[Rfam]
RNA sequence: AAAGGUAAAAAGGGCCACAGCGGGAGCGUCACGUCCUGGCCCCUUGCAGAUGCGUGCCUCUGCGAGUCCUACU
Numbered sequence: 001a002a003a004g005g006u007a008a009a010a011a012g013g014g015c016c017a018c019a020g021c022g023g024g025a026g027c028g029u030c031a032c033g034u035c036c037u038g039g040c041c042c043c044u045u046g047c048a049g050a051u052g053c054g055u056g057c058c059u060c061u062g063c064g065a066g067u068c069c070u071a072c073u
Stems, first nucleotide, its partner, number of pairs: 012042005019073002022070004026037001028035001047062004052057001